[Rfam]
RNA: Small nucleolar RNA SNORD58
RNA sequence: UGGCGGUGAUGACGUAUCUUAGGACACCUUUGGAGUACCUGUGAAAAAAUACAGAAUUUUUUUUCUGAGCCAU
Numbered sequence: 001u002g003g004c005g006g007u008g009a010u011g012a013c014g015u016a017u018c019u020u021a022g023g024a025c026a027c028c029u030u031u032g033g034a035g036u037a038c039c040u041g042u043g044a045a046a047a048a049a050u051a052c053a054g055a056a057u058u059u060u061u062u063u064u065c066u067g068a069g070c071c072a073u
Stems, first nucleotide, its partner, number of pairs: 001072004